Background: Rfam assigns this 73-nucleotide sequence from Notiomystis cincta to the family "mir-1759 microRNA precursor family". Rfam links the family to the GO terms RISC complex and miRNA-mediated post-transcriptional gene silencing.
RNA sequence: GCCUUGUACGGGAGGAGGGGAGAGGUGUUACCUUACGAGCUGUCACCUCUCCCAUCCUCUCCUCUACAGGAGC
Numbered sequence: 001g002c003c004u005u006g007u008a009c010g011g012g013a014g015g016a017g018g019g020g021a022g023a024g025g026u027g028u029u030a031c032c033u034u035a036c037g038a039g040c041u042g043u044c045a046c047c048u049c050u051c052c053c054a055u056c057c058u059c060u061c062c063u064c065u066a067c068a069g070g071a072g073c
Base pairs, nucleotide, nucleotide: 001073002072003070004069005068006067007066008065010062011061013058014057015056016055017053018052020051021050022049023048024047025046026045027044029042030041032039033038